[Rfam]
RNA sequence: AAAGGAGAAAUAAACCCUUUCUUGUUCUAUCAAGAGGGCGUUAUUUCUCCUUUCUUU
Numbered sequence: 001a002a003a004g005g006a007g008a009a010a011u012a013a014a015c016c017c018u019u020u021c022u023u024g025u026u027c028u029a030u031c032a033a034g035a036g037g038g039c040g041u042u043a044u045u046u047c048u049c050c051u052u053u054c055u056u057u
Stems, first nucleotide, its partner, number of pairs: 001053013019036006
Background:
This 57-nucleotide RNA sequence belongs to the Rfam family "Plastid-psbA-3 3UTR RNA". A reference for the family is Richter et al. (2023), "Retrograde signaling in plants: A critical review focusing on the GUN pathway and beyond", Plant Commun. The base pairs follow the family's consensus structure, which was predicted with LocARNA. Rfam classes the family as a cis-regulatory element. The family is grouped with related families in Rfam's "Plastid-psbA 3UTR RNA clan".